RNA sequence: UGGCAUCCAGCAGGAAUUGAAACCUCCGAUUGCCAAUUAUGAGUUGGGCGCUUUAACCUUCAGCCAUGGAUGC
Dot-bracket structure: ..((((((.(.(((........))).)...........(((.((((((.(.......))))))))))))))))